The record is a 78-nucleotide RNA from Pongo pygmaeus, which matches "mir-147 microRNA precursor family" in Rfam. The literature on the family includes a 2008 paper in BMC Genomics by Kawaji et al., "Hidden layers of human small RNAs". The family's consensus secondary structure was predicted with RNAalifold. Gene Ontology terms of the family: RISC complex and miRNA-mediated post-transcriptional gene silencing.
[Rfam]
RNA sequence: UAUAAAUCUAGUGGAAACAUUUCUGCACAAACUAGAUUCUGGACACCAGUGUGCGGAAAUGCUUCUGCUACAUUUUUA
Numbered sequence: 001u002a003u004a005a006a007u008c009u010a011g012u013g014g015a016a017a018c019a020u021u022u023c024u025g026c027a028c029a030a031a032c033u034a035g036a037u038u039c040u041g042g043a044c045a046c047c048a049g050u051g052u053g054c055g056g057a058a059a060u061g062c063u064u065c066u067g068c069u070a071c072a073u074u075u076u077u078a
Stems, first nucleotide, its partner, number of pairs: 001078002004075004009070008018061012032049002
The source organism's lineage runs through Eukaryota, Chordata, Gnathostomata, Euarchontoglires and Pongo.